[Rfam]
RNA sequence: UCCUUAUCAAGAGAAAUGGAGGGGCUGGCCCAAUGAAGUUUCAGCAAGUAAUAUGGAUUAUAUUCAUAUGAGGUGCUAAAUCCUGCAGAUAUAUUUCUGAAAGAUGGGGA
Numbered sequence: 001u002c003c004u005u006a007u008c009a010a011g012a013g014a015a016a017u018g019g020a021g022g023g024g025c026u027g028g029c030c031c032a033a034u035g036a037a038g039u040u041u042c043a044g045c046a047a048g049u050a051a052u053a054u055g056g057a058u059u060a061u062a063u064u065c066a067u068a069u070g071a072g073g074u075g076c077u078a079a080a081u082c083c084u085g086c087a088g089a090u091a092u093a094u095u096u097c098u099g100a101a102a103g104a105u106g107g108g109g110a
Stems, first nucleotide, its partner, number of pairs: 001110008013042005021031003025085001027083002043077004049072001050069001081102001086099004
RNA: SAM riboswitch aptamer (S box leader)